[Rfam]
RNA sequence: AAUCAAUAAGAGCCUAGUUCCGUCCAGGACGGAAGCGGGGGAACCAACUUUUGGGGUUAAUUCUGUGCAAGCAGAAGGGAUGCUCUCUGCCAUCCUACCCGUCAGCUAACCUCGUCGGCUAAAGCAGAUUU
Numbered sequence: 001a002a003u004c005a006a007u008a009a010g011a012g013c014c015u016a017g018u019u020c021c022g023u024c025c026a027g028g029a030c031g032g033a034a035g036c037g038g039g040g041g042a043a044c045c046a047a048c049u050u051u052u053g054g055g056g057u058u059a060a061u062u063c064u065g066u067g068c069a070a071g072c073a074g075a076a077g078g079g080a081u082g083c084u085c086u087c088u089g090c091c092a093u094c095c096u097a098c099c100c101g102u103c104a105g106c107u108a109a110c111c112u113c114g115u116c117g118g119c120u121a122a123a124g125c126a127g128a129u130u131u
Base pairs, nucleotide, nucleotide: 011120012119013118014117018034019033020032021031022030035115036114037113038112039111040110045053046052054100055099056098062075063074064073065072078095079094080093081092